The record is a 98-nucleotide sequence from Heterocephalus glaber, which matches "NoRC associated RNA, pRNA" in Rfam. NCBI's taxonomy places the organism under Eukaryota, Deuterostomia, Eutheria, Bathyergidae, Heterocephalus.
[Rfam]
RNA sequence: UUUUGGGGGUGUUUUUUGGGUACUGGGGAUCAAACUCGGGACCUUGCACUUUCAAGGCAGGUGGCGGGACCACUGAGCUAAAUCCCCGGCCCCUGUUG
Numbered sequence: 001u002u003u004u005g006g007g008g009g010u011g012u013u014u015u016u017u018g019g020g021u022a023c024u025g026g027g028g029a030u031c032a033a034a035c036u037c038g039g040g041a042c043c044u045u046g047c048a049c050u051u052u053c054a055a056g057g058c059a060g061g062u063g064g065c066g067g068g069a070c071c072a073c074u075g076a077g078c079u080a081a082a083u084c085c086c087c088g089g090c091c092c093c094u095g096u097u098g
Stems, first nucleotide, its partner, number of pairs: 004095001006093001008092002011090002018087003035077003038073001043068005

Notes: A search with the family's covariance model found it, with a score of 35 bits.